[Rfam]
A member of the RNA family "mir-17 microRNA precursor family" from Ophiophagus hannah, 80 nucleotides long. Its family is annotated with miRNA-mediated post-transcriptional gene silencing and RISC complex in the Gene Ontology. This family represents the microRNA (miRNA) precursor mir-17, family, which includes mir-20, mir-91, and mir-103. miRNAs are transcribed as ~70nt precursors (modelled here) and subsequently processed by the Dicer enzyme to give a ~22nt product. In this case the mature sequence comes from the 3' arm of the precursor. The extents of the hairpin precursors are not generally known and are estimated based on hairpin prediction. The literature on the family includes a 2001 paper in Cell by Ambros, "microRNAs: tiny regulators with great potential". NCBI's taxonomy places the organism under Eukaryota, Dipnotetrapodomorpha, Colubroidea, Elapinae, Ophiophagus.
RNA sequence: UAGAAUAAUGUCAAAGUGCUUACAGUGCAGGUAGUGAUUUAUAGAACCUACUGCAGUGAAGGCACUUGUAGCAUUAUGCU
Numbered sequence: 001u002a003g004a005a006u007a008a009u010g011u012c013a014a015a016g017u018g019c020u021u022a023c024a025g026u027g028c029a030g031g032u033a034g035u036g037a038u039u040u041a042u043a044g045a046a047c048c049u050a051c052u053g054c055a056g057u058g059a060a061g062g063c064a065c066u067u068g069u070a071g072c073a074u075u076a077u078g079c080u
Stems, first nucleotide, its partner, number of pairs: 005077004010072002014067008023058002026055003030052005
Dot-bracket structure: ....((((.((..((((((((.((.(((.(((((.............)))))))).)).))))))))...)).))))...